[Rfam]
Shown here is a 96-nucleotide RNA from Psophia crepitans, a member of the family "Small nucleolar RNA SNORD21". The source organism's lineage runs through Eukaryota, Deuterostomia, Saurischia, Neognathae and Psophia. Pairs were carried over by alignment from the consensus structure, which was predicted with PFOLD. On this family, see Qu et al., Nucleic Acids Res 1994: "U21, a novel small nucleolar RNA with a 13 nt. complementarity to 28S rRNA, is encoded in an intron of ribosomal protein L5 gene in chicken and mammals". A search with the family's covariance model found it, with a score of 85 bits.
RNA sequence: GCUACAUGAUGAUACUCCCAGUGACUGAACGCUCCGUUGUUGGUCCAUGGUGUGUAUGUGAUGUAUGCACUGUUUCAAGACGGGACUGAUGGCAGC
Numbered sequence: 001g002c003u004a005c006a007u008g009a010u011g012a013u014a015c016u017c018c019c020a021g022u023g024a025c026u027g028a029a030c031g032c033u034c035c036g037u038u039g040u041u042g043g044u045c046c047a048u049g050g051u052g053u054g055u056a057u058g059u060g061a062u063g064u065a066u067g068c069a070c071u072g073u074u075u076c077a078a079g080a081c082g083g084g085a086c087u088g089a090u091g092g093c094a095g096c
Base pairs, nucleotide, nucleotide: 001093002092003091004090